[Rfam]
The record is a 147-nucleotide RNA sequence, which matches "Human acetyl-coA cholesterol acyltransferase mRNA" in Rfam.
The literature on the family includes a 2008 paper in Cell Res by Chen et al., "RNA secondary structures located in the interchromosomal region of human ACAT1 chimeric mRNA are required to produce the 56-kDa isoform".
By type it is a cis-regulatory element.
Rfam's curators put it in the seed alignment.
Gene Ontology term of the family: regulation of translational initiation.
The base pairs follow the family's consensus structure, which is taken from published work.
RNA sequence: UAGCUUAGCAGGCGACGUUGCGGGCCCUGGGCGCCAGGAGAGCUUCCCGGAGUCGACCUUCCUGCUGGCUGCUCUGUGACCGCUUCCCGGCUCUGCCCUCUUGGCCGAAGUGCCCGCUGCCGGGCGCGGGCCUCAGGUCGAAUUGAC
Numbered sequence: 001u002a003g004c005u006u007a008g009c010a011g012g013c014g015a016c017g018u019u020g021c022g023g024g025c026c027c028u029g030g031g032c033g034c035c036a037g038g039a040g041a042g043c044u045u046c047c048c049g050g051a052g053u054c055g056a057c058c059u060u061c062c063u064g065c066u067g068g069c070u071g072c073u074c075u076g077u078g079a080c081c082g083c084u085u086c087c088c089g090g091c092u093c094u095g096c097c098c099u100c101u102u103g104g105c106c107g108a109a110g111u112g113c114c115c116g117c118u119g120c121c122g123g124g125c126g127c128g129g130g131c132c133u134c135a136g137g138u139c140g141a142a143u144u145g146a147c
Stems, first nucleotide, its partner, number of pairs: 013017001034090002037087003041084003045079002048076005054071002057068002103132004110127007